[Rfam]
RNA sequence: AGAGCGCGUUGGACAGCGGCGCGGCCCCGCUUUGCGGGGGCGUGAGGAAAGUCCGGGCUUCACAGGGCGGGAUACCUGCUAACGGCAGGCCGGGGCGACCCGAGGGAAAGUGCAACAGAAAGAUACCGCCAUCGCAUCACGGGGUCUUCCCCCGCGGACGGUGGUAAGGAUGGAAAGGCGAGGUAAGAGCUCACCGGGACGCGGGUAACCGCGCCGCCAUGUAAACCCUAUCCGAAGCAACGCCAGCUGGGACGAUGCGGCGGCCCGCCGGGUCCCGAAAGGCGGCUUGAGCCGCGCGGCGACGCGCGGCCCAGAAAGAUCGUUGUCCACGACAGAACCCGGCUUACAGACGCCCUCUCUAC
Numbered sequence: 001a002g003a004g005c006g007c008g009u010u011g012g013a014c015a016g017c018g019g020c021g022c023g024g025c026c027c028c029g030c031u032u033u034g035c036g037g038g039g040g041c042g043u044g045a046g047g048a049a050a051g052u053c054c055g056g057g058c059u060u061c062a063c064a065g066g067g068c069g070g071g072a073u074a075c076c077u078g079c080u081a082a083c084g085g086c087a088g089g090c091c092g093g094g095g096c097g098a099c100c101c102g103a104g105g106g107a108a109a110g111u112g113c114a115a116c117a118g119a120a121a122g123a124u125a126c127c128g129c130c131a132u133c134g135c136a137u138c139a140c141g142g143g144g145u146c147u148u149c150c151c152c153c154g155c156g157g158a159c160g161g162u163g164g165u166a167a168g169g170a171u172g173g174a175a176a177g178g179c180g181a182g183g184u185a186a187g188a189g190c191u192c193a194c195c196g197g198g199a200c201g202c203g204g205g206u207a208a209c210c211g212c213g214c215c216g217c218c219a220u221g222u223a224a225a226c227c228c229u230a231u232c233c234g235a236a237g238c239a240a241c242g243c244c245a246g247c248u249g250g251g252a253c254g255a256u257g258c259g260g261c262g263g264c265c266c267g268c269c270g271g272g273u274c275c276c277g278a279a280a281g282g283c284g285g286c287u288u289g290a291g292c293c294g295c296g297c298g299g300c301g302a303c304g305c306g307c308g309g310c311c312c313a314g315a316a317a318g319a320u321c322g323u324u325g326u327c328c329a330c331g332a333c334a335g336a337a338c339c340c341g342g343c344u345u346a347c348a349g350a351c352g353c354c355c356u357c358u359c360u361a362c
Stems, first nucleotide, its partner, number of pairs: 001358004006353005011347001012327007020044004025039004049345003053342005058237004065266004070233005075089005090104001091102004105228002110226002112222003126169002128165007177195002180192003196217001197215002200213005241284004250275004258270004291310008
RNA: Bacterial RNase P class A